[Rfam]
RNA sequence: GAUCAGCAGGCAGUGUAGUUAGUUGAUUACAGACUCUAAAGUAAUCACUAACCUCACUACCAGCUGAAG
Numbered sequence: 001g002a003u004c005a006g007c008a009g010g011c012a013g014u015g016u017a018g019u020u021a022g023u024u025g026a027u028u029a030c031a032g033a034c035u036c037u038a039a040a041g042u043a044a045u046c047a048c049u050a051a052c053c054u055c056a057c058u059a060c061c062a063g064c065u066g067a068a069g
Stems, first nucleotide, its partner, number of pairs: 003067004009061002012058004018052005024047007
RNA: mir-34 microRNA precursor family
Organism: Danionella cerebrum